mir-156 microRNA precursor family: an 86-nucleotide sequence from Pyrus ussuriensis x Pyrus communis. A reference for the family is Reinhart et al. (2002), "MicroRNAs in plants", Genes Dev. This family represents the plant microRNA (miRNA) precursor mir-156. The family's consensus secondary structure was predicted with PFOLD. Taxonomically the source falls in Pyrus (Eukaryota, Mesangiospermae, Pentapetalae, Rosales). Rfam 15.1 lists 1,401 matches to the family in 221 species. The match comes from Rfam's covariance-model search (65 bits).
[Rfam]
RNA sequence: UUGACAGAAGAGAGUGAGCACACACAGGCAGCAAUUGUAUAAAAUCAUACCUUUGGGCGGUGCGUGCUCACUUCUCUCUCCGUCAG
Numbered sequence: 001u002u003g004a005c006a007g008a009a010g011a012g013a014g015u016g017a018g019c020a021c022a023c024a025c026a027g028g029c030a031g032c033a034a035u036u037g038u039a040u041a042a043a044a045u046c047a048u049a050c051c052u053u054u055g056g057g058c059g060g061u062g063c064g065u066g067c068u069c070a071c072u073u074c075u076c077u078c079u080c081c082g083u084c085a086g
Base pairs, nucleotide, nucleotide: 001086002085003084004083005082007080008079010076011075012074013072014071015070016069017068018067019066020065021064023062024061025060